The record is an 85-nucleotide RNA from Schaalia dentiphila, which matches "ZMP/ZTP riboswitch aptamer (pfl RNA motif)" in Rfam.
It is one of the family's seed sequences.
Lineage of the source: Bacteria > Bacillati > Actinomycetota > Actinomycetes > Schaalia dentiphila.
Rfam links the family to the GO terms one-carbon metabolic process and regulation of purine nucleotide biosynthetic process.

RNA sequence: GGGAGACGCCGCGACUGGCGAGGGUGGAUGACCACCGGGGAGCGGCCGCAUUUCCCGCGAGGCGUCGCCCGCCUGGGCGCCUGGG
Numbered sequence: 001g002g003g004a005g006a007c008g009c010c011g012c013g014a015c016u017g018g019c020g021a022g023g024g025u026g027g028a029u030g031a032c033c034a035c036c037g038g039g040g041a042g043c044g045g046c047c048g049c050a051u052u053u054c055c056c057g058c059g060a061g062g063c064g065u066c067g068c069c070c071g072c073c074u075g076g077g078c079g080c081c082u083g084g085g
Base pairs, nucleotide, nucleotide: 003051005049008046009045010044011043012042015039016038017073018072019071020070024035025034026033027032062080063079064078065077066076